Rfam assigns this 64-nucleotide RNA sequence from Myotis myotis to the family "mir-9242 microRNA precursor family". NCBI's taxonomy places the organism under Eukaryota, Bilateria, Sarcopterygii, Theria, Myotis. Rfam 15.1 lists 940 matches to the family in 18 species. Gene Ontology terms of the family: RISC complex and miRNA-mediated post-transcriptional gene silencing.

[Rfam]
RNA sequence: GGCCUCCCUCUUUGGGGAAAUCAAUCACAGGGCUCUGUGAUCGAUUUCCCCAAAGAGGGAGGCU
Number, nucleotide and partner (000 for none) at each position: 001g064002g063003c062004c061005u060006c059007c058008c057009u056010c055011u054012u053013u052014g051015g050016g049017g048018a047019a046020a045021u044022c043023a000024a041025u040026c039027a038028c037029a036030g035031g000032g000033c000034u000035c030036u029037g028038u027039g026040a025041u024042c000043g022044a021045u020046u019047u018048c017049c016050c015051c014052a013053a012054a011055g010056a009057g008058g007059g006060a005061g004062g003063c002064u001